[Rfam]
RNA sequence: UGCCAGCGUUAAGUCAAGGCUCCUUCCGCAUUUUGUGUGCGUUUUUCACCAUGGAAGGAGACUGUUACAACUCUGGCAGAUCGAAGUCGGCCCGCCGCUAGACCCCGUUAUGGACGUCUAGUAGAUUGCUUGCCGUCUUGGUUUGCUUUCAAAAGGGUUCGAGCGUGUUUCGUUUGAGUUGAGUACCUCUCCCGCUCGUAUGGGUGGCUCAUGGAGGCUCUCUUAGUUAUGAUCCACACAUCU
Numbered sequence: 001u002g003c004c005a006g007c008g009u010u011a012a013g014u015c016a017a018g019g020c021u022c023c024u025u026c027c028g029c030a031u032u033u034u035g036u037g038u039g040c041g042u043u044u045u046u047c048a049c050c051a052u053g054g055a056a057g058g059a060g061a062c063u064g065u066u067a068c069a070a071c072u073c074u075g076g077c078a079g080a081u082c083g084a085a086g087u088c089g090g091c092c093c094g095c096c097g098c099u100a101g102a103c104c105c106c107g108u109u110a111u112g113g114a115c116g117u118c119u120a121g122u123a124g125a126u127u128g129c130u131u132g133c134c135g136u137c138u139u140g141g142u143u144u145g146c147u148u149u150c151a152a153a154a155g156g157g158u159u160c161g162a163g164c165g166u167g168u169u170u171c172g173u174u175u176g177a178g179u180u181g182a183g184u185a186c187c188u189c190u191c192c193c194g195c196u197c198g199u200a201u202g203g204g205u206g207g208c209u210c211a212u213g214g215a216g217g218c219u220c221u222c223u224u225a226g227u228u229a230u231g232a233u234c235c236a237c238a239c240a241u242c243u
Stems, first nucleotide, its partner, number of pairs: 003076004017063002020060007027041005087162004092157001097122007105113002129145001132142004165237003170232004181222003187216004193206003196202001
RNA: Small nucleolar RNA snR191